[Rfam]
The family of this 89-nucleotide RNA from Actinokineospora iranica is "ZMP/ZTP riboswitch aptamer (pfl RNA motif)". The source organism's lineage runs through Bacteria, Bacillati, Actinomycetes, Pseudonocardiales and Actinokineospora. The match comes from Rfam's covariance-model search (51 bits).

RNA sequence: UCGCCGAGUCGUGACUGGCGUGUUCGGGUGGGCAUAACCACCGGGGAGCGGCGAGAGCGGAUGAGGCACCGGACGCCUGGGUGCUCCCG
Numbered sequence: 001u002c003g004c005c006g007a008g009u010c011g012u013g014a015c016u017g018g019c020g021u022g023u024u025c026g027g028g029u030g031g032g033c034a035u036a037a038c039c040a041c042c043g044g045g046g047a048g049c050g051g052c053g054a055g056a057g058c059g060g061a062u063g064a065g066g067c068a069c070c071g072g073a074c075g076c077c078u079g080g081g082u083g084c085u086c087c088c089g
Base pairs, nucleotide, nucleotide: 005055008052009051010050011049012048015045016044017077018076019075020074021073028041029040030039031038066084067083068082069081070080